[Rfam]
RNA sequence: AAUACAUAUGGCAAUGAUGUCUGCCUUGAACCGCCACCAAAAAAUUGGAGCUGAUGACGUCUAGUAGUGG
Numbered sequence: 001a002a003u004a005c006a007u008a009u010g011g012c013a014a015u016g017a018u019g020u021c022u023g024c025c026u027u028g029a030a031c032c033g034c035c036a037c038c039a040a041a042a043a044a045u046u047g048g049a050g051c052u053g054a055u056g057a058c059g060u061c062u063a064g065u066a067g068u069g070g
Base pairs, nucleotide, nucleotide: 010025011024012023013022016061017060018059019058020057021056033051034050

Rfam assigns this 70-nucleotide sequence from Flavobacterium silvaticum to the family "Fluoride riboswitch aptamer (crcB RNA motif)". The family's consensus secondary structure is taken from published work. It scores 40 bits against the family's covariance model.